[Rfam]
RNA sequence: UAAUUGAAUAGGCAAAUUACUUGAAAAAGUGAGACGCAAAGCUAAAGGGGCUAAAUCCGUACGGGUAUGCCAGCCAGUUGCAAUC
Numbered sequence: 001u002a003a004u005u006g007a008a009u010a011g012g013c014a015a016a017u018u019a020c021u022u023g024a025a026a027a028a029g030u031g032a033g034a035c036g037c038a039a040a041g042c043u044a045a046a047g048g049g050g051c052u053a054a055a056u057c058c059g060u061a062c063g064g065g066u067a068u069g070c071c072a073g074c075c076a077g078u079u080g081c082a083a084u085c
Stems, first nucleotide, its partner, number of pairs: 012037002017032006040079004047075002049071003056065003
A member of the RNA family "c-di-GMP-I riboswitch aptamer" from Mangrovibacillus cuniculi, 85 nucleotides long. Its family is annotated with cyclic-di-GMP binding in the Gene Ontology.